[Rfam]
A member of the RNA family "Small nucleolar RNA SNORD45", 79 nucleotides long. For this family Rfam cites "RNomics: an experimental approach that identifies 201 candidates for novel, small, non-messenger RNAs in mouse" (Huttenhofer et al., EMBO J, 2001). Rfam's curators put it in the seed alignment. By type it is a C/D-box small nucleolar RNA. The family has 11 seed sequences and 1,629 matches in Rfam 15.1.
RNA sequence: GGUCAAUGAUGAGUUGGCAUGUAUUCUGAAUCUAAAGUUGAUUAUUACUACUUUAGCUCUAGAAUUACUCUGAGACCUG
Numbered sequence: 001g002g003u004c005a006a007u008g009a010u011g012a013g014u015u016g017g018c019a020u021g022u023a024u025u026c027u028g029a030a031u032c033u034a035a036a037g038u039u040g041a042u043u044a045u046u047a048c049u050a051c052u053u054u055a056g057c058u059c060u061a062g063a064a065u066u067a068c069u070c071u072g073a074g075a076c077c078u079g
Stems, first nucleotide, its partner, number of pairs: 001077004